Rfam assigns this 155-nucleotide sequence from Oribacterium sinus to the family "glmS glucosamine-6-phosphate activated ribozyme aptamer". From the family's description: This entry contains a glucosamine-6-phosphate activated ribozyme that is found in the mRNA for GlmS. GlmS is an enzyme that uses fructose-6-phosphate and glutamine to generate glucosamine-6-phosphate. The ribozyme catalyses self cleavage of the glmS mRNA that is thought to regulate GlmS activity. A search with the family's covariance model found it, with a score of 69 bits. A reference for the family is Winkler et al. (2004), "Control of gene expression by a natural metabolite-responsive ribozyme", Nature. It is annotated as a riboswitch.
RNA sequence: AAAGAAAAAUUAGCGCCAGGGCUUCGGGAACCCCCAAGCCGACGAGGUAAACAGUCAUCGAAAGAUUCGGCGGAUGCUGUUUCGGAGUAGUGCAUCGUUAGGGAAAGAAAAAAAGCGAAAUCAAAAUCGUAACAAAAGCUUUCUCCGCACCGAAA
Numbered sequence: 001a002a003a004g005a006a007a008a009a010u011u012a013g014c015g016c017c018a019g020g021g022c023u024u025c026g027g028g029a030a031c032c033c034c035c036a037a038g039c040c041g042a043c044g045a046g047g048u049a050a051a052c053a054g055u056c057a058u059c060g061a062a063a064g065a066u067u068c069g070g071c072g073g074a075u076g077c078u079g080u081u082u083c084g085g086a087g088u089a090g091u092g093c094a095u096c097g098u099u100a101g102g103g104a105a106a107g108a109a110a111a112a113a114a115g116c117g118a119a120a121u122c123a124a125a126a127u128c129g130u131a132a133c134a135a136a137a138g139c140u141u142u143c144u145c146c147g148c149a150c151c152g153a154a155a
Base pairs, nucleotide, nucleotide: 020040021039022038023037024036026034027033049082050081051080052079053078058070059069060068061067083097084096085095087093101145102144103143104142105141106140107139115130116129117128118127121126